The family of this 302-nucleotide sequence from Eptatretus burgeri is "Metazoan signal recognition particle RNA".
[Rfam]
RNA sequence: GCCGGGUGUAGUGGCGUGCACCUGUAAUCCGGCUUCUCGGAGGCUUGGGUUGAGGGAUCGCACGAGGACGGAUCAGCUGCUCCACACCUUGCUAUGUCGAUCGGGCGUCCACACCAAGCUCGGCAUCGACAUGGGGAGCCGGGGGUAGUCCUGUGCUCUCCAGGUCGGUCUCCUAAGGAGGGAUGAACCGACCCAGGCCGGUAACGGAGCAGGUCAAAGUCCCCGUGUUGAUCAGUGGUGGGACAGCGCUCGUGAAUAGAGGGUGUGGAGCGGCCCGGUCUCAGGGCGAAACACAAUCCUUU
Numbered sequence: 001g002c003c004g005g006g007u008g009u010a011g012u013g014g015c016g017u018g019c020a021c022c023u024g025u026a027a028u029c030c031g032g033c034u035u036c037u038c039g040g041a042g043g044c045u046u047g048g049g050u051u052g053a054g055g056g057a058u059c060g061c062a063c064g065a066g067g068a069c070g071g072a073u074c075a076g077c078u079g080c081u082c083c084a085c086a087c088c089u090u091g092c093u094a095u096g097u098c099g100a101u102c103g104g105g106c107g108u109c110c111a112c113a114c115c116a117a118g119c120u121c122g123g124c125a126u127c128g129a130c131a132u133g134g135g136g137a138g139c140c141g142g143g144g145g146u147a148g149u150c151c152u153g154u155g156c157u158c159u160c161c162a163g164g165u166c167g168g169u170c171u172c173c174u175a176a177g178g179a180g181g182g183a184u185g186a187a188c189c190g191a192c193c194c195a196g197g198c199c200g201g202u203a204a205c206g207g208a209g210c211a212g213g214u215c216a217a218a219g220u221c222c223c224c225g226u227g228u229u230g231a232u233c234a235g236u237g238g239u240g241g242g243a244c245a246g247c248g249c250u251c252g253u254g255a256a257u258a259g260a261g262g263g264u265g266u267g268g269a270g271c272g273g274c275c276c277g278g279u280c281u282c283a284g285g286g287c288g289a290a291a292c293a294c295a296a297u298c299c300u301u302u
Base pairs, nucleotide, nucleotide: 001044002043003042004023005022006021007020008019009018010017028041029040030039047299048298049297050296051295052294054292058289059288060287061286063284064282065281066280067279069277070276071275077273078272079271080270081269082268083267084266085265086264087263088262089261092259093258094257095256097254102252103251104250105249106248107247108246109242110241112240113239114238115237116236118233120231121230122229123228124227125226126225127167128166129165130164132162133161134160135159136158137157138156139155140153141152142151143150144149172178173177180223181222182221183220184219190215191214192213193212198207199206200205

Clan: SRP clan. The literature on the family includes a 2002 paper in Curr Opin Struct Biol by Wild et al., "Towards the structure of the mammalian signal recognition particle". The organism belongs to Eptatretus, within Eukaryota. Pairs were carried over by alignment from the consensus structure, which is taken from published work. The match comes from Rfam's covariance-model search (226 bits). Rfam classes the family as a non-coding RNA gene.